[Rfam]
RNA sequence: AGUAACAAAAAGCUAAAUCUAGGUCCACCUAGAGCGGGGGAUUUUUUUUUGGGGUGAAACGUGCACCAUGCGCGUCGGGCUUACACCUUACCGUCCGAAUCCGUCAACUAACCUCGUAAGCUAUGAAAGGUGAAAAA
Numbered sequence: 001a002g003u004a005a006c007a008a009a010a011a012g013c014u015a016a017a018u019c020u021a022g023g024u025c026c027a028c029c030u031a032g033a034g035c036g037g038g039g040g041a042u043u044u045u046u047u048u049u050u051g052g053g054g055u056g057a058a059a060c061g062u063g064c065a066c067c068a069u070g071c072g073c074g075u076c077g078g079g080c081u082u083a084c085a086c087c088u089u090a091c092c093g094u095c096c097g098a099a100u101c102c103g104u105c106a107a108c109u110a111a112c113c114u115c116g117u118a119a120g121c122u123a124u125g126a127a128a129g130g131u132g133a134a135a136a137a
Base pairs, nucleotide, nucleotide: 011122012121013120014119018033019032020031021030022029034117035116036115037114038113039112044051052102053101054100060074061073062072063071077096078095079094080093
RNA: c-di-AMP riboswitch aptamer (ydaO/yuaA leader)